[Rfam]
RNA sequence: AAAUAGUAUCAGGGGAGCUUAGGCUGAGAAUAGGUUUUUACCUUAAACCCUUAAAACCUGAAGUGGGUAAUGCCACCGUAGGAAGAUCUCUCAUCUGCUGA
Numbered sequence: 001a002a003a004u005a006g007u008a009u010c011a012g013g014g015g016a017g018c019u020u021a022g023g024c025u026g027a028g029a030a031u032a033g034g035u036u037u038u039u040a041c042c043u044u045a046a047a048c049c050c051u052u053a054a055a056a057c058c059u060g061a062a063g064u065g066g067g068u069a070a071u072g073c074c075a076c077c078g079u080a081g082g083a084a085g086a087u088c089u090c091u092c093a094u095c096u097g098c099u100g101a
Stems, first nucleotide, its partner, number of pairs: 006089001008087003011051004017024002032043004057082004063076004

TPP riboswitch aptamer (THI element): a 101-nucleotide sequence from Campylobacter pinnipediorum. Pairs were carried over by alignment from the consensus structure, which is taken from published work. Lineage of the source: Bacteria > Pseudomonadati > Campylobacteraceae > Campylobacter > Campylobacter pinnipediorum. A search with the family's covariance model found it, with a score of 68 bits.